[Rfam]
RNA: Small nucleolar RNA SNORD10
Organism: Loxodonta africana
RNA sequence: GCUCUGUGAUGAACCCCAUGCGUGUCAUCUGAGCCUGGCAUCCCUGUUGCCUCAGCCCAGGUAGUGUUCUACUUUCCAGGGCUGUUGUCUGACUUGGCAGGGGUCAGGGCAAAGGAUCAAUCUUUACGUUCUGAGAGC
Dot-bracket structure: ((((.....................................((((((((.............................................))))))))................................))))